[Rfam]
Nucleotides: 174
Base pairs, nucleotide, nucleotide: 026044027043028042046086047085048084049083050082051081052080053079054078055077063076064075065074066073067072
Number, partner (000 for none) and nucleotide at each position: 001000g002000c003000a004000c005000c006000c007000g008000u009000c010000a011000u012000u013000g014000g015000g016000g017000a018000g019000u020000a021000g022000c023000c024000g025000c026044c027043c028042g029000g030000c031000g032000c033000g034000c035000c036000a037000u038000g039000c040000g041000c042028c043027g044026g045000g046086g047085c048084u049083c050082g051081c052080g053079u054078c055077a056000a057000c058000a059000g060000a061000c062000u063076u064075g065074g066073c067072c068000c069000g070000c071000a072067g073066g074065c075064c076063a077055u078054g079053g080052c081051g082050c083049g084048a085047g086046c087000a088000g089000c090000c091000u092000u093000c094000c095000a096000g097000c098000c099000u100000g101000g102000c103000a104000a105000g106000a107000c108000c109000u110000u111000u112000g113000a114000c115000c116000g117000c118000a119000c120000c121000g122000c123000c124000u125000c126000c127000g128000c129000a130000c131000g132000c133000g134000c135000c136000g137000g138000g139000g140000a141000g142000g143000c144000g145000c146000u147000g148000c149000g150000g151000u152000c153000u154000u155000u156000g157000g158000u159000u160000u161000g162000u163000u164000c165000g166000c167000c168000g169000g170000c171000c172000g173000u174000u

This 174-nucleotide sequence from Hydrogenophaga borbori belongs to the Rfam family "Manganese Mn2+ riboswitch aptamer (yybP-ykoY)".
A reference for the family is Argaman et al. (2001), "Novel small RNA-encoding genes in the intergenic regions of Escherichia coli", Curr Biol.
The base pairs follow the family's consensus structure.
This RNA was originally discovered in E. coli during a large scale screen and was named SraF. The family was later found to exist upstream of related families of protein genes in many bacteria, including the the yybP and ykoK genes in B. subtilis.
The source organism's lineage runs through Bacteria, Pseudomonadati, Betaproteobacteria, Burkholderiales and Hydrogenophaga.